[Rfam]
RNA sequence: GGGAUAGUUCCCGAUCGAAUAUCAGUUGGGGUAUUUACAAAAAGACAAAAUUGUAAUGCCCUGAAUGAUGUUCAAUCGGUGAUGAAUCUC
Numbered sequence: 001g002g003g004a005u006a007g008u009u010c011c012c013g014a015u016c017g018a019a020u021a022u023c024a025g026u027u028g029g030g031g032u033a034u035u036u037a038c039a040a041a042a043a044g045a046c047a048a049a050a051u052u053g054u055a056a057u058g059c060c061c062u063g064a065a066u067g068a069u070g071u072u073c074a075a076u077c078g079g080u081g082a083u084g085a086a087u088c089u090c
Stems, first nucleotide, its partner, number of pairs: 001090005007083003011079005017073008026064010037054003